Overview: Small nucleolar RNA snR80: a 178-nucleotide RNA from Saccharomyces paradoxus. The organism belongs to Saccharomyces paradoxus, within Eukaryota.
[Rfam]
RNA sequence: GAACGUUUGACAACACUCUGGGACCAAGUUUCGAUGAUAAUAUUUCUUAUUUCCAUCGAUACCAUUCACUGUACUUAGUUCCAAUUUAUAUUGCAAACAAGAUUGAUUUUAGGCGAUUACUCACUAAGAUAUACCUAUUUCUACUAUGGUUAUAUUAGUCCAUUUCAUAGCCUUACAU
Number, nucleotide and partner (000 for none) at each position: 001g000002a000003a000004c000005g000006u000007u096008u095009g094010a000011c000012a000013a000014c000015a000016c000017u000018c000019u083020g082021g081022g080023a079024c078025c000026a076027a075028g074029u073030u000031u059032c058033g057034a056035u055036g054037a000038u000039a000040a000041u000042a000043u000044u000045u000046c000047u000048u000049a000050u000051u000052u000053c000054c036055a035056u034057c033058g032059a031060u000061a000062c000063c000064a000065u000066u000067c000068a000069c000070u000071g000072u000073a029074c028075u027076u026077a000078g024079u023080u022081c021082c020083a019084a000085u000086u000087u000088a000089u000090a000091u000092u000093g000094c009095a008096a007097a000098c000099a000100a000101g000102a000103u000104u000105g000106a000107u000108u000109u000110u000111a173112g172113g171114c170115g000116a000117u000118u000119a000120c000121u000122c000123a000124c158125u157126a156127a155128g000129a153130u152131a151132u000133a150134c149135c148136u000137a000138u000139u000140u000141c000142u000143a000144c000145u000146a000147u000148g135149g134150u133151u131152a130153u129154a000155u127156u126157a125158g124159u000160c000161c000162a000163u000164u000165u000166c000167a000168u000169a000170g114171c113172c112173u111174u000175a000176c000177a000178u000
The family's RNA type in Rfam is H/ACA-box small nucleolar RNA.